[Rfam]
RNA sequence: GUGUUUUUCAUAGUAUUAGAUUUAAGGUUAACAAGGUUGGAGUGCAGCGGCGCUCCAUUUUUUUUGUU
Numbered sequence: 001g002u003g004u005u006u007u008u009c010a011u012a013g014u015a016u017u018a019g020a021u022u023u024a025a026g027g028u029u030a031a032c033a034a035g036g037u038u039g040g041a042g043u044g045c046a047g048c049g050g051c052g053c054u055c056c057a058u059u060u061u062u063u064u065u066g067u068u
Stems, first nucleotide, its partner, number of pairs: 039056007
Bacteroidetes FopS (family of paralogous sRNAs): a 68-nucleotide RNA sequence from Hallella bergensis. The family's consensus secondary structure is taken from published work. About the family: The RNA-binding protein RbpB and BTncRNA_FopS sRNA are involved in the post-transcription regulation of polysaccharide utilisation loci (PUL). FopS sRNAs function as post-transcriptional repressors by binding to the vicinity of the start codon of the first mRNA of target PUL polycistrons, typically corresponding to the cognate SusC homolog, impeding translation of the respective glycan transporter. For this family Rfam cites "The global RNA-binding protein RbpB is a regulator of polysaccharide utilization in Bacteroides thetaiotaomicron" (Ruttiger et al., Nat Commun, 2025). Lineage of the source: Bacteria > Pseudomonadati > Bacteroidota > Hallella > Hallella bergensis. Its family is annotated with sRNA-mediated gene silencing in the Gene Ontology.